RNA: mir-8799 microRNA precursor family
Organism: Vulpes vulpes
RNA sequence: GGGAGGAGGCCGGAUCCUGGGCUGUGUCUCGGCGCCCUGUGCUCCGGGGCCUGCGCUGUUGGAUUAGCGGUCCUGGCUGCGCAACCCCCU
Dot-bracket structure: (((.((..(((((..((.(((.(((.(((((((((...(.(((....)))).))))))..)))...))).))).))))).))..)).)))